RNA sequence: UUACCAAAAGUUAAUUUUUGAGGAAAAAGGAUUUUUUAAAAAAAUAACCUUUACCAACUUGGGCUAUCUGGGAGAAUAAAGAAAAGACCAUACUCCACAGUGGGUUAUACCACUUAGUAUAGUUUAUGUCUAUUUUUUGGCCUAUAUU
Numbered sequence: 001u002u003a004c005c006a007a008a009a010g011u012u013a014a015u016u017u018u019u020g021a022g023g024a025a026a027a028a029g030g031a032u033u034u035u036u037u038a039a040a041a042a043a044a045u046a047a048c049c050u051u052u053a054c055c056a057a058c059u060u061g062g063g064c065u066a067u068c069u070g071g072g073a074g075a076a077u078a079a080a081g082a083a084a085a086g087a088c089c090a091u092a093c094u095c096c097a098c099a100g101u102g103g104g105u106u107a108u109a110c111c112a113c114u115u116a117g118u119a120u121a122g123u124u125u126a127u128g129u130c131u132a133u134u135u136u137u138u139g140g141c142c143u144a145u146a147u148u
Stems, first nucleotide, its partner, number of pairs: 004071003008067001012066002015063003021059002028052001029049002032046001085143002088140003092136001100127011
RNA: Small nucleolar RNA SNORA4